The record is a 122-nucleotide RNA, which matches "LOOT RNA" in Rfam.
RNA sequence: GGCCUAACCCGUUCCGUAAGGAGCGGCAGGGCUAUAAAUCCUGUUGAAGAUAAAGAUCCCAUCAUGUGGGAGCAUCUUCAACAGGUCAUAUCUCGAAAGGGAUAUGGGUCUCGCAAGGGAUC
Numbered sequence: 001g002g003c004c005u006a007a008c009c010c011g012u013u014c015c016g017u018a019a020g021g022a023g024c025g026g027c028a029g030g031g032c033u034a035u036a037a038a039u040c041c042u043g044u045u046g047a048a049g050a051u052a053a054a055g056a057u058c059c060c061a062u063c064a065u066g067u068g069g070g071a072g073c074a075u076c077u078u079c080a081a082c083a084g085g086u087c088a089u090a091u092c093u094c095g096a097a098a099g100g101g102a103u104a105u106g107g108g109u110c111u112c113g114c115a116a117g118g119g120a121u122c
Base pairs, nucleotide, nucleotide: 001033002032003031004030009026010025011024012023013022014021015020040085041084042083043082044081045080046079047078048077049076050075055073057071058070059069060068061067062066087106088105089104090103091102092101093100094099107122108121109120110119111118112117
It is one of the family's seed sequences.